A member of the RNA family "Streptomyces-metK RNA" from Streptomyces pratensis, 117 nucleotides long.
RNA sequence: GCGAGACGCGUGACCCAACCACCGGAAGCGACCGAUAAACUGGUCGACGGAAUGUGCCGGGCGCAGCUCCCGGAGUUCCAUCAAUGAUCAGCCAGCAGCCGCUGCAACCCCAGGGAG
Numbered sequence: 001g002c003g004a005g006a007c008g009c010g011u012g013a014c015c016c017a018a019c020c021a022c023c024g025g026a027a028g029c030g031a032c033c034g035a036u037a038a039a040c041u042g043g044u045c046g047a048c049g050g051a052a053u054g055u056g057c058c059g060g061g062c063g064c065a066g067c068u069c070c071c072g073g074a075g076u077u078c079c080a081u082c083a084a085u086g087a088u089c090a091g092c093c094a095g096c097a098g099c100c101g102c103u104g105c106a107a108c109c110c111c112a113g114g115g116a117g
Stems, first nucleotide, its partner, number of pairs: 049079005057073005093104004
By type it is a small RNA. The family's consensus secondary structure is taken from published work. The source organism's lineage runs through Bacteria, Actinomycetota, Actinomycetes, Streptomyces and Streptomyces pratensis.